[Rfam]
Background
Shown here is a 195-nucleotide RNA from Vagococcus acidifermentans, a member of the family "Enterococcus sRNA 2410". A search with the family's covariance model found it, with a score of 70 bits. The organism belongs to Vagococcus, within Bacteria. Rfam classes the family as a small RNA. Rfam describes the family as follows. Produced as 2 transcripts on Northern blot. The base pairs follow the family's consensus structure, which was predicted with RNAfold.
RNA sequence: UUAGCUAUUUUAGAUAAGUUUGUAGCCAUGACAUUAUGGAUACAAACGAUACCAGUUUUGUAUCUAUGAUGGCUAGAGCAUUUAGUAAUGAAUUCAAACAGCCACGUAGAUGACUACAUACCUCUACAGUGGCUUUUAAUAUGUUUAGACGUAAUUUUCGAUGAACAGACGACGACUGUAGAUGAGUAUAUACAU
Numbered sequence: 001u002u003a004g005c006u007a008u009u010u011u012a013g014a015u016a017a018g019u020u021u022g023u024a025g026c027c028a029u030g031a032c033a034u035u036a037u038g039g040a041u042a043c044a045a046a047c048g049a050u051a052c053c054a055g056u057u058u059u060g061u062a063u064c065u066a067u068g069a070u071g072g073c074u075a076g077a078g079c080a081u082u083u084a085g086u087a088a089u090g091a092a093u094u095c096a097a098a099c100a101g102c103c104a105c106g107u108a109g110a111u112g113a114c115u116a117c118a119u120a121c122c123u124c125u126a127c128a129g130u131g132g133c134u135u136u137u138a139a140u141a142u143g144u145u146u147a148g149a150c151g152u153a154a155u156u157u158u159c160g161a162u163g164a165a166c167a168g169a170c171g172a173c174g175a176c177u178g179u180a181g182a183u184g185a186g187u188a189u190a191u192a193c194a195u
Stems, first nucleotide, its partner, number of pairs: 001076007011066006018047007026039004050060002080155003085150002100134006107126003